[Rfam]
This 84-nucleotide RNA belongs to the Rfam family "freshwater-2 RNA".
The sequence is in the family's curated seed alignment.
It is annotated as a cis-regulatory element.
RNA sequence: GUGUGCCGUAAGGCGGACUUAUGCUGUACCCACAGCGUAGCUCAUAGAACGGGCAUAGGACUACUAUAAUAGGAGAAAAAAAUG
Numbered sequence: 001g002u003g004u005g006c007c008g009u010a011a012g013g014c015g016g017a018c019u020u021a022u023g024c025u026g027u028a029c030c031c032a033c034a035g036c037g038u039a040g041c042u043c044a045u046a047g048a049a050c051g052g053g054c055a056u057a058g059g060a061c062u063a064c065u066a067u068a069a070u071a072g073g074a075g076a077a078a079a080a081a082a083u084g
Stems, first nucleotide, its partner, number of pairs: 001018002004015003020039007040054004